[Rfam]
This 254-nucleotide sequence from Aspergillus glaucus belongs to the Rfam family "Small nucleolar RNA snR191". It scores 67 bits against the family's covariance model. NCBI's taxonomy places the organism under Eukaryota, Fungi, Ascomycota, saccharomyceta, Aspergillus glaucus. Its family is annotated with nucleolus and RNA processing in the Gene Ontology. The literature on the family includes a 2003 paper in RNA by Badis et al., "A snoRNA that guides the two most conserved pseudouridine modifications within rRNA confers a growth advantage in yeast".
RNA sequence: UGCCACCGCUAAGUCAGGACUUCUUCCAGCGACUACUUGUCGCGCUUUCGCACAAUGGAGGCUUGUCUGUUACAGCUUUGGCAGAUCGACACUGGUCCGCGCCGAACCUCUUUCUGAGGCUAGGCUGAUUUGGCUUUCGUUUUGAAAGCUGGUUGUUAAGGACCAGGUAGUGCUUUGUUUUUGAGUUGAGAUCUGCUUCUGCCUUUCUUUGGCGGUUUACCGUAGCAGAUCUCUUAGUAACAUCUCACACAUUC
Numbered sequence: 001u002g003c004c005a006c007c008g009c010u011a012a013g014u015c016a017g018g019a020c021u022u023c024u025u026c027c028a029g030c031g032a033c034u035a036c037u038u039g040u041c042g043c044g045c046u047u048u049c050g051c052a053c054a055a056u057g058g059a060g061g062c063u064u065g066u067c068u069g070u071u072a073c074a075g076c077u078u079u080g081g082c083a084g085a086u087c088g089a090c091a092c093u094g095g096u097c098c099g100c101g102c103c104g105a106a107c108c109u110c111u112u113u114c115u116g117a118g119g120c121u122a123g124g125c126u127g128a129u130u131u132g133g134c135u136u137u138c139g140u141u142u143u144g145a146a147a148g149c150u151g152g153u154u155g156u157u158a159a160g161g162a163c164c165a166g167g168u169a170g171u172g173c174u175u176u177g178u179u180u181u182u183g184a185g186u187u188g189a190g191a192u193c194u195g196c197u198u199c200u201g202c203c204u205u206u207c208u209u210u211g212g213c214g215g216u217u218u219a220c221c222g223u224a225g226c227a228g229a230u231c232u233c234u235u236a237g238u239a240a241c242a243u244c245u246c247a248c249a250c251a252u253u254c
Base pairs, nucleotide, nucleotide: 003081004080005079017068018067019066020065023061024060025059026058027057029043030042031041032040033039092166093165094164095163096162097161105121107119108118109117110116133149134148135147136146137145138144139143170248171247172246176242177241178240188233189232190231191230194227195226196225197224199215200214201213202212203211